[Rfam]
This 101-nucleotide RNA sequence from Hominimerdicola alba belongs to the Rfam family "THF (Tetrahydrofolate) riboswitch aptamer". Tetrahydrofolate (THF) riboswitch was first reported for Ames et al. as an RNA motif in 5' untranslated (5'-UTR)regions of folate transport and biosynthesis genes in Firmicutes genomes. The match comes from Rfam's covariance-model search (81 bits). Rfam links the family to the GO term tetrahydrofolate metabolic process. The family has 101 seed sequences and 747 matches in Rfam 15.1. For this family Rfam cites "A disconnect between high-affinity binding and efficient regulation by antifolates and purines in the tetrahydrofolate riboswitch" (Trausch and Batey, Chem Biol, 2014).
RNA sequence: UACAGAGAAGGAUACCGAGCGUUAAGUGUUCUGCGGAAGGGAAGUUGCCGUGGAAACGAAAAGUCGAGAGCCUUGCGGUUCGGUAUUCGCAUCCCGCUGAA
Numbered sequence: 001u002a003c004a005g006a007g008a009a010g011g012a013u014a015c016c017g018a019g020c021g022u023u024a025a026g027u028g029u030u031c032u033g034c035g036g037a038a039g040g041g042a043a044g045u046u047g048c049c050g051u052g053g054a055a056a057c058g059a060a061a062a063g064u065c066g067a068g069a070g071c072c073u074u075g076c077g078g079u080u081c082g083g084u085a086u087u088c089g090c091a092u093c094c095c096g097c098u099g100a101a
Stems, first nucleotide, its partner, number of pairs: 001101001003099003010088010020077003026057002029055008040094003044090001061074003